[Rfam]
RNA sequence: AUACCUCUCGCGGGAGAGAUUGCCGUAAAGUUUCUUAAGCGAAACAAUACGGGCAGCGCCGAAGGAGCAACCGCCCCGGAAACUCUCAGGCACAUGGACCGCAAGAGGCAG
Numbered sequence: 001a002u003a004c005c006u007c008u009c010g011c012g013g014g015a016g017a018g019a020u021u022g023c024c025g026u027a028a029a030g031u032u033u034c035u036u037a038a039g040c041g042a043a044a045c046a047a048u049a050c051g052g053g054c055a056g057c058g059c060c061g062a063a064g065g066a067g068c069a070a071c072c073g074c075c076c077c078g079g080a081a082a083c084u085c086u087c088a089g090g091c092a093c094a095u096g097g098a099c100c101g102c103a104a105g106a107g108g109c110a111g
Base pairs, nucleotide, nucleotide: 006106007105008104010102011101012100013099020056021055022054023053058091059090060089061087062086065085066084067083071079072078
Overview:
Shown here is a 111-nucleotide sequence from Kiloniella litopenaei, a member of the family "Glycine riboswitch aptamer". The match comes from Rfam's covariance-model search (67 bits). The source organism's lineage runs through Bacteria, Pseudomonadati, Alphaproteobacteria, Rhodospirillales and Kiloniella. The family is grouped with related families in Rfam's "Glycine riboswitch clan". Gene Ontology term of the family: glycine biosynthetic process. The base pairs follow the family's consensus structure.